[Rfam]
RNA sequence: UUUCCACGGCCCCGGCCACUCCACAUCAAUGGCCGGACAAGCUGUGAAAAAAAGGAGGAUAAAACCGGCCCGGACUCGGGCUGCGGCAGAGUGGAGACCUGUCGCAACGCGGAGCAGCCUGAAGCGGCUGACCGCGAGCACACAGCAAGCGGAGGCUCUGUGUGCAGAGUCGAGAAACAUGGCA
Numbered sequence: 001u002u003u004c005c006a007c008g009g010c011c012c013c014g015g016c017c018a019c020u021c022c023a024c025a026u027c028a029a030u031g032g033c034c035g036g037a038c039a040a041g042c043u044g045u046g047a048a049a050a051a052a053a054g055g056a057g058g059a060u061a062a063a064a065c066c067g068g069c070c071c072g073g074a075c076u077c078g079g080g081c082u083g084c085g086g087c088a089g090a091g092u093g094g095a096g097a098c099c100u101g102u103c104g105c106a107a108c109g110c111g112g113a114g115c116a117g118c119c120u121g122a123a124g125c126g127g128c129u130g131a132c133c134g135c136g137a138g139c140a141c142a143c144a145g146c147a148a149g150c151g152g153a154g155g156c157u158c159u160g161u162g163u164g165c166a167g168a169g170u171c172g173a174g175a176a177a178c179a180u181g182g183c184a
Stems, first nucleotide, its partner, number of pairs: 007041001012036007068081004073171005082106008091098002109135004115130003138165008148157003
RNA: malK-I RNA